Rfam assigns this 147-nucleotide RNA sequence from Hibiscus trionum to the family "small nucleolar RNA snoR134".
[Rfam]
RNA sequence: CUGCACGAACUCUCCCGGGCUAAUCCGAAUCUGUUCCUAUGAAGAUCAAAGCCCCAAUGUUGGUGCUAAAUCCAUGCCGUUUCACGUGUUGCGGAAUAGCCUUUGCUUAUCGACUGGCUCUUCUGUGUCAAAUCGGCGGCUACAUCU
Numbered sequence: 001c002u003g004c005a006c007g008a009a010c011u012c013u014c015c016c017g018g019g020c021u022a023a024u025c026c027g028a029a030u031c032u033g034u035u036c037c038u039a040u041g042a043a044g045a046u047c048a049a050a051g052c053c054c055c056a057a058u059g060u061u062g063g064u065g066c067u068a069a070a071u072c073c074a075u076g077c078c079g080u081u082u083c084a085c086g087u088g089u090u091g092c093g094g095a096a097u098a099g100c101c102u103u104u105g106c107u108u109a110u111c112g113a114c115u116g117g118c119u120c121u122u123c124u125g126u127g128u129c130a131a132a133u134c135g136g137c138g139g140c141u142a143c144a145u146c147u
Stems, first nucleotide, its partner, number of pairs: 003066004008061003017054005024045002076140006087130002090127006099118003
Pairs were carried over by alignment from the consensus structure, which was predicted with RNAalifold. Rfam 15.1 lists 792 matches to the family in 228 species. The literature on the family includes a 2009 paper in Nucleic Acids Res by Chen and Wu, "Mining small RNA sequencing data: a new approach to identify small nucleolar RNAs in Arabidopsis". The match comes from Rfam's covariance-model search (83 bits).